RNA: c-di-GMP-I-GGC riboswitch aptamer
Organism: Paenibacillus hemerocallicola
RNA sequence: ACCGAUAAAGGCAAACCCGCCGAAAGACGGGGACGCAAAGCUACGGGCCUAAGGAAAUGUCUACGGUCGCCGGGCUGCCGAAU
Number, nucleotide and partner (000 for none) at each position: 001a083002c000003c080004g079005a000006u000007a000008a000009a000010g000011g036012c035013a000014a000015a000016c031017c030018c029019g028020c000021c026022g000023a000024a000025a000026g021027a000028c019029g018030g017031g016032g000033a000034c069035g012036c011037a000038a000039a076040g075041c074042u073043a000044c072045g071046g070047g067048c066049c065050u000051a000052a000053g000054g000055a000056a000057a000058u000059g000060u000061c000062u000063a000064c000065g049066g048067u047068c000069g034070c046071c045072g044073g042074g041075c040076u039077g000078c000079c004080g003081a000082a000083u001